[Rfam]
RNA sequence: AGUGUUUUUCCGUCCACUUAAAUCGAACGGC
Numbered sequence: 001a002g003u004g005u006u007u008u009u010c011c012g013u014c015c016a017c018u019u020a021a022a023u024c025g026a027a028c029g030g031c
Base pairs, nucleotide, nucleotide: 001018002017003016004015010030011029012028013027014025
Dot-bracket structure: ((((.....[[[[[))))......].]]]].